[Rfam]
Shown here is a 117-nucleotide sequence from Halopolyspora algeriensis, a member of the family "mraW RNA". A search with the family's covariance model found it, with a score of 58 bits.
RNA sequence: UUCGUUGCGGGUGUCGUAAGGCCUCUGUCCGCCCGAUGGGUGCCGUCCUGGUGCAACUUCCCCGGUACCAGGACGCGGCGGGCGGGCGGGGACCUGGCGAGAUCCACUCCGAACCGG
Dot-bracket structure: .........(((.(((...((.(((((((((((((.((.((.....((((((((..........)))))))))).)).))))))))))))).))...))).))).............